[Rfam]
RNA: c-di-GMP-I riboswitch aptamer
Organism: Ruminiclostridium sufflavum
RNA sequence: AAGUGAAAAAGGUAAACUUACUGAAAGGUAAGGACACAAAGCCAUGAGUCUAAAGUGUGAAUACACCAUGAUUGUCAGGUUGCCGAU
Numbered sequence: 001a002a003g004u005g006a007a008a009a010a011g012g013u014a015a016a017c018u019u020a021c022u023g024a025a026a027g028g029u030a031a032g033g034a035c036a037c038a039a040a041g042c043c044a045u046g047a048g049u050c051u052a053a054a055g056u057g058u059g060a061a062u063a064c065a066c067c068a069u070g071a072u073u074g075u076c077a078g079g080u081u082g083c084c085g086a087u
Stems, first nucleotide, its partner, number of pairs: 012037002017032006040081004045077003048072003055066004